[Rfam]
RNA sequence: AGAUGAGAGAAACACGCCGCUCGCAGGAGACUGCGGGCGACUCCGGUUCGGCGCUUCCCCAGUGCCGUCCGGGUUGUGCCCACGCGCACACCACUGGGGCCUCCGGCUCCGGAACUCCUCACCGAUCGGA
Numbered sequence: 001a002g003a004u005g006a007g008a009g010a011a012a013c014a015c016g017c018c019g020c021u022c023g024c025a026g027g028a029g030a031c032u033g034c035g036g037g038c039g040a041c042u043c044c045g046g047u048u049c050g051g052c053g054c055u056u057c058c059c060c061a062g063u064g065c066c067g068u069c070c071g072g073g074u075u076g077u078g079c080c081c082a083c084g085c086g087c088a089c090a091c092c093a094c095u096g097g098g099g100c101c102u103c104c105g106g107c108u109c110c111g112g113a114a115c116u117c118c119u120c121a122c123c124g125a126u127c128g129g130a
Stems, first nucleotide, its partner, number of pairs: 004121004009117002018039009043073002046070001049067006076089004094112008122129002
Dot-bracket structure: ...((((.((.......(((((((((....)))))))))...((.(..((((((.......))))))..).))..((((......))))....((((((((...))))))))...))))))((....)).
Background: This 130-nucleotide RNA from Streptomyces finlayi belongs to the Rfam family "Streptomyces RNA 5676". It scores 108 bits against the family's covariance model. From the family's description: Identified by deep sequencing of transcriptome at the end of exponential growth phase. Appears longer on northern blot than sequencing transcript. This indicates processing step. Streptomyces specific.